The record is a 119-nucleotide RNA sequence from Actinoplanes sp. SE50/110, which matches "SAM riboswitch aptamer (S box leader)" in Rfam. The SAM riboswitch is found upstream of a number of genes which code for proteins involved in methionine or cysteine biosynthesis in Gram-positive bacteria. Gene Ontology term of the family: regulation of gene expression. A search with the family's covariance model found it, with a score of 79 bits.

[Rfam]
RNA sequence: ACCUCAUCCAGAGGGGCAGAGGGAACGGCCCGAUGAAGCCCCGGCAACCACCGCUUUCGUGAUGCGGCAGGUGCUAAUUCCGUCCUCCGCGGCAGGUCGCCGCCGGGGAAAGAUGAGAG
Numbered sequence: 001a002c003c004u005c006a007u008c009c010a011g012a013g014g015g016g017c018a019g020a021g022g023g024a025a026c027g028g029c030c031c032g033a034u035g036a037a038g039c040c041c042c043g044g045c046a047a048c049c050a051c052c053g054c055u056u057u058c059g060u061g062a063u064g065c066g067g068c069a070g071g072u073g074c075u076a077a078u079u080c081c082g083u084c085c086u087c088c089g090c091g092g093c094a095g096g097u098c099g100c101c102g103c104c105g106g107g108g109a110a111a112g113a114u115g116a117g118a119g
Stems, first nucleotide, its partner, number of pairs: 003117006013042005021031003025083004043075004048071002051067004079111001084108004089103005
The literature on the family includes a 2021 paper in Nucleic Acids Res by Huang et al., "Structure and folding of four putative kink turns identified in structured RNA species in a test of structural prediction rules".